[Rfam]
S10-Clostridia ribosomal protein leader: a 104-nucleotide sequence from Halalkalibacterium halodurans. By type it is a cis-regulatory leader. Lineage of the source: Bacteria > Caryophanales > Bacillaceae > Halalkalibacterium (ex Joshi et al. 2022) > Halalkalibacterium halodurans. The literature on the family includes a 2020 paper in BMC Microbiol by Eckert and Weinberg, "Discovery of 20 novel ribosomal leader candidates in bacteria and archaea".
RNA sequence: UGACAGCGAUGAUGUGGAAGGUUGCUGACACACCCGGCCCCUUUGCCAUGGCAGGGUGUGGGGAAAUUUUCACGGAGUAUGUCUAUUUUCAAAAUGGACGAUAA
Numbered sequence: 001u002g003a004c005a006g007c008g009a010u011g012a013u014g015u016g017g018a019a020g021g022u023u024g025c026u027g028a029c030a031c032a033c034c035c036g037g038c039c040c041c042u043u044u045g046c047c048a049u050g051g052c053a054g055g056g057u058g059u060g061g062g063g064a065a066a067u068u069u070u071c072a073c074g075g076a077g078u079a080u081g082u083c084u085a086u087u088u089u090c091a092a093a094a095u096g097g098a099c100g101a102u103a104a
Stems, first nucleotide, its partner, number of pairs: 014073003018070004025062002028059004080103004087098003